About this RNA
Shown here is an 84-nucleotide sequence from Homo sapiens, a member of the family "mir-661 microRNA precursor family". It is one of the family's seed sequences. A reference for the family is Yue et al. (2008), "Identification of novel homologous microRNA genes in the rhesus macaque genome", BMC Genomics. The family has 3 seed sequences and 16 matches in Rfam 15.1.

RNA sequence: GGCUGUGCUGUGGGGCAGGCGCAGGCCUGAGCCCUGGUUUCGGGCUGCCUGGGUCUCUGGCCUGCGCGUGACUUUGGGGUGGCU
Numbered sequence: 001g002g003c004u005g006u007g008c009u010g011u012g013g014g015g016c017a018g019g020c021g022c023a024g025g026c027c028u029g030a031g032c033c034c035u036g037g038u039u040u041c042g043g044g045c046u047g048c049c050u051g052g053g054u055c056u057c058u059g060g061c062c063u064g065c066g067c068g069u070g071a072c073u074u075u076g077g078g079g080u081g082g083c084u
Base pairs, nucleotide, nucleotide: 001084002083003082004081007080008079009078011076012075013074014073015072016070017069019067020066021065022064024062025061026060027059029057030056031055032053033052034051036049037048038047